[Rfam]
RNA sequence: CUUGAUCGAGCCGAGCCACAGCGGCCGGUCCGCGGGCCGGUCCCUGCCGUACGUGGCGAGCAGGGCCUGUGCCUC
Numbered sequence: 001c002u003u004g005a006u007c008g009a010g011c012c013g014a015g016c017c018a019c020a021g022c023g024g025c026c027g028g029u030c031c032g033c034g035g036g037c038c039g040g041u042c043c044c045u046g047c048c049g050u051a052c053g054u055g056g057c058g059a060g061c062a063g064g065g066c067c068u069g070u071g072c073c074u075c
Stems, first nucleotide, its partner, number of pairs: 015025003031071003038065001043060001045058001047056003
Dot-bracket structure: ..............(((.....))).....(((....(....(.(.(((....))).).)....)...)))....
ASpks TB sRNA: a 75-nucleotide RNA from Streptomyces sulfonofaciens. Taxonomically the source falls in Streptomyces (Bacteria, Actinomycetota, Actinomycetes, Streptomycetaceae).